[Rfam]
RNA sequence: UCAUCUAGCGGGAACUCAGUGCUGUGAUCUGUGUGCAUUAUUCGUUUCACAUCACAGUCUGAGUUCUUGCUGGAUGG
Numbered sequence: 001u002c003a004u005c006u007a008g009c010g011g012g013a014a015c016u017c018a019g020u021g022c023u024g025u026g027a028u029c030u031g032u033g034u035g036c037a038u039u040a041u042u043c044g045u046u047u048c049a050c051a052u053c054a055c056a057g058u059c060u061g062a063g064u065u066c067u068u069g070c071u072g073g074a075u076g077g
Stems, first nucleotide, its partner, number of pairs: 004074003009069009022057006031050003